[Rfam]
The family of this 109-nucleotide RNA sequence from Rhinolophus ferrumequinum is "Small nucleolar RNA U6-53/MBII-28".
The organism belongs to Rhinolophus, within Eukaryota.
The match comes from Rfam's covariance-model search (87 bits).
The literature on the family includes a 2001 paper in EMBO J by Huttenhofer et al., "RNomics: an experimental approach that identifies 201 candidates for novel, small, non-messenger RNAs in mouse".
RNA sequence: CCCCUGUGGUGAGUUGCCAUUCUAGUACUGCAACACCACAUAGGGGGUUUUUUCCUGCAUUGGGUGUUGUUGAGAUAAACCCUACUUGUCUUACAGCUACCUGAGGGGC
Numbered sequence: 001c002c003c004c005u006g007u008g009g010u011g012a013g014u015u016g017c018c019a020u021u022c023u024a025g026u027a028c029u030g031c032a033a034c035a036c037c038a039c040a041u042a043g044g045g046g047g048u049u050u051u052u053u054c055c056u057g058c059a060u061u062g063g064g065u066g067u068u069g070u071u072g073a074g075a076u077a078a079a080c081c082c083u084a085c086u087u088g089u090c091u092u093a094c095a096g097c098u099a100c101c102u103g104a105g106g107g108g109c
Stems, first nucleotide, its partner, number of pairs: 001108004041057005